[Rfam]
RNA: Acido-Lenti-1 RNA
RNA sequence: CCCAGGGCUUCACCCUGGGCUGUCACAGAGCGGCCCUUCAGGCCU
Numbered sequence: 001c002c003c004a005g006g007g008c009u010u011c012a013c014c015c016u017g018g019g020c021u022g023u024c025a026c027a028g029a030g031c032g033g034c035c036c037u038u039c040a041g042g043c044c045u
Base pairs, nucleotide, nucleotide: 001019002018003017004016005015006014007013032044033043034042035041